[Rfam]
RNA sequence: UAACAAACAACUAAUAUACCUCAUAUAAUUUCAGGGAUAUGGCCUGAUUGUUUCUACCCGUCACCGUAAAUGAUGGACUAUGAGGGAAGAUGAUACAUUG
Numbered sequence: 001u002a003a004c005a006a007a008c009a010a011c012u013a014a015u016a017u018a019c020c021u022c023a024u025a026u027a028a029u030u031u032c033a034g035g036g037a038u039a040u041g042g043c044c045u046g047a048u049u050g051u052u053u054c055u056a057c058c059c060g061u062c063a064c065c066g067u068a069a070a071u072g073a074u075g076g077a078c079u080a081u082g083a084g085g086g087a088a089g090a091u092g093a094u095a096c097a098u099u100g
Stems, first nucleotide, its partner, number of pairs: 019085007031047005058076006
Shown here is a 100-nucleotide RNA sequence from Paraliobacillus ryukyuensis, a member of the family "Purine riboswitch aptamer". Gene Ontology term of the family: purine nucleobase biosynthetic process. Lineage of the source: Bacteria > Bacillati > Bacillota > Bacilli > Paraliobacillus. The family's consensus secondary structure is taken from published work.